[Rfam]
RNA sequence: CCACAUGUUUUCUAGGGUUCCGCAACUAAACUGUUGGACUGGUCCGAGAGAAAACUCACAGUACUCUGUGUCACGGAGGGAUAAAAGCCCGGGAGAU
Numbered sequence: 001c002c003a004c005a006u007g008u009u010u011u012c013u014a015g016g017g018u019u020c021c022g023c024a025a026c027u028a029a030a031c032u033g034u035u036g037g038a039c040u041g042g043u044c045c046g047a048g049a050g051a052a053a054a055c056u057c058a059c060a061g062u063a064c065u066c067u068g069u070g071u072c073a074c075g076g077a078g079g080g081a082u083a084a085a086a087g088c089c090c091g092g093g094a095g096a097u
Stems, first nucleotide, its partner, number of pairs: 007055006015045002020042002022039001023036004057070005072092001074095001078090003
RNA: Guanidine-I riboswitch aptamer